[Rfam]
RNA sequence: UAGCCACUUCUAGGGCCCGGUCUUUUCCUUGUGGUGCUGACCUGCCCCCUCCAUUAGCAAGAGUAUCAAGACUGGUUUGGGGGUGCCCUGCUUGAGUGGACGUGGUGACACCCCAUGGUUUUCAGAACAAAC
Numbered sequence: 001u002a003g004c005c006a007c008u009u010c011u012a013g014g015g016c017c018c019g020g021u022c023u024u025u026u027c028c029u030u031g032u033g034g035u036g037c038u039g040a041c042c043u044g045c046c047c048c049c050u051c052c053a054u055u056a057g058c059a060a061g062a063g064u065a066u067c068a069a070g071a072c073u074g075g076u077u078u079g080g081g082g083g084u085g086c087c088c089u090g091c092u093u094g095a096g097u098g099g100a101c102g103u104g105g106u107g108a109c110a111c112c113c114c115a116u117g118g119u120u121u122u123c124a125g126a127a128c129a130a131a132c
Stems, first nucleotide, its partner, number of pairs: 003058002006055001008053001014046003019042004027034002072125004077118003082112004087107001088105002090101001092099002